[Rfam]
RNA sequence: UGGUAGAUGCACCCUGGUUAAGCCCUGGAGAACUUCUCUAGGGCAUUUUUUA
Numbered sequence: 001u002g003g004u005a006g007a008u009g010c011a012c013c014c015u016g017g018u019u020a021a022g023c024c025c026u027g028g029a030g031a032a033c034u035u036c037u038c039u040a041g042g043g044c045a046u047u048u049u050u051u052a
Stems, first nucleotide, its partner, number of pairs: 002013003022044010
RNA: Nitrogen stress-induced RNA 1